[Rfam]
Shown here is a 75-nucleotide RNA sequence from Thermostaphylospora chromogena, a member of the family "Actino-pnp RNA".
The base pairs follow the family's consensus structure, which is taken from published work.
NCBI's taxonomy places the organism under Bacteria, Bacillati, Actinomycetes, Streptosporangiales, Thermostaphylospora.
RNA sequence: GCCGGUCCUCGGUAGUGGCUUCCGGUCGCGGCGCGAGCCGUACACAGGGACCGGGUGCUUCGAUCGAAGACCGGC
Numbered sequence: 001g002c003c004g005g006u007c008c009u010c011g012g013u014a015g016u017g018g019c020u021u022c023c024g025g026u027c028g029c030g031g032c033g034c035g036a037g038c039c040g041u042a043c044a045c046a047g048g049g050a051c052c053g054g055g056u057g058c059u060u061c062g063a064u065c066g067a068a069g070a071c072c073g074g075c
Stems, first nucleotide, its partner, number of pairs: 001075007009067005017059003021055007029047001
Dot-bracket structure: (((((((.(((((...(((.(((((((.(.................).))))))).)))...))))).)))))))